[Rfam]
RNA sequence: GGAAGAGCGACAUCCCCGGUGGGGUGCCUGGUCUUCAAAACCAGUGAGGUGCUGAGACAGCGCCUGGUGGGUUCGACUCCUACCUCUUCC
Numbered sequence: 001g002g003a004a005g006a007g008c009g010a011c012a013u014c015c016c017c018g019g020u021g022g023g024g025u026g027c028c029u030g031g032u033c034u035u036c037a038a039a040a041c042c043a044g045u046g047a048g049g050u051g052c053u054g055a056g057a058c059a060g061c062g063c064c065u066g067g068u069g070g071g072u073u074c075g076a077c078u079c080c081u082a083c084c085u086c087u088u089c090c
Stems, first nucleotide, its partner, number of pairs: 001090007009083001011026006028044005047065005068082004
Shown here is a 90-nucleotide sequence from gamma proteobacterium HIMB55, a member of the family "Selenocysteine transfer RNA". The base pairs follow the family's consensus structure, which is taken from published work. Rfam links the family to the GO term triplet codon-amino acid adaptor activity.